This 89-nucleotide sequence from Bordetella sp. N belongs to the Rfam family "Glycine riboswitch aptamer".
Taxonomically the source falls in Bordetella (Bacteria, Pseudomonadati, Pseudomonadota, Betaproteobacteria).
It scores 67 bits against the family's covariance model.
This family represents the bacterial glycine riboswitch.
RNA sequence: UACGGACGCGCGGAAGAGUUCGACUUUGCGUCGACGCCGAAGGAGCAACCGCCCCGGAAACUCUCAGGCAAAAGGACCGCGCGACCAGG
Number, nucleotide and partner (000 for none) at each position: 001u000002a000003c000004g000005g000006a000007c083008g082009c081010g080011c079012g078013g077014a000015a000016g000017a000018g000019u000020u034021c033022g032023a031024c000025u000026u000027u000028g000029c000030g000031u023032c022033g021034a020035c000036g069037c068038c067039g065040a064041a000042g000043g063044a062045g061046c000047a000048a000049c057050c056051g000052c000053c000054c000055c000056g050057g049058a000059a000060a000061c045062u044063c043064u040065c039066a000067g038068g037069c036070a000071a000072a000073a000074g000075g000076a000077c013078c012079g011080c010081g009082c008083g007084a000085c000086c000087a000088g000089g000